[Rfam]
Shown here is a 73-nucleotide sequence from Cellulomonas sp. B6, a member of the family "Fluoride riboswitch aptamer (crcB RNA motif)".
RNA sequence: GCUGGUCGCGGCGAUGGAUCCCGCCGGGGCGUGACGCCCGAACCGCCGCACGGCUGAUGGUUCCUGCUCCGGU
Numbered sequence: 001g002c003u004g005g006u007c008g009c010g011g012c013g014a015u016g017g018a019u020c021c022c023g024c025c026g027g028g029g030c031g032u033g034a035c036g037c038c039c040g041a042a043c044c045g046c047c048g049c050a051c052g053g054c055u056g057a058u059g060g061u062u063c064c065u066g067c068u069c070c071g072g073u
Stems, first nucleotide, its partner, number of pairs: 010025004016064003020060002045054003
Dot-bracket structure: .........((((..[[[.[[))))...................(((....)))....]].]]].........